The family of this 63-nucleotide RNA sequence from Ursus americanus is "Ma3 gene ribosomal frameshift signal". The literature on the family includes a 2006 paper in J Biol Chem by Wills et al., "A functional -1 ribosomal frameshift signal in the human paraneoplastic Ma3 gene". Pairs were carried over by alignment from the consensus structure, which is taken from published work.
[Rfam]
RNA sequence: GGGAAAAGAGGAUGGGGCUGGGGAGACGAGUCCCUCCAAGUACUCCUCAGGCAAAUAGGCUCA
Numbered sequence: 001g002g003g004a005a006a007a008g009a010g011g012a013u014g015g016g017g018c019u020g021g022g023g024a025g026a027c028g029a030g031u032c033c034c035u036c037c038a039a040g041u042a043c044u045c046c047u048c049a050g051g052c053a054a055a056u057a058g059g060c061u062c063a
Stems, first nucleotide, its partner, number of pairs: 014047003018040002021037003028062005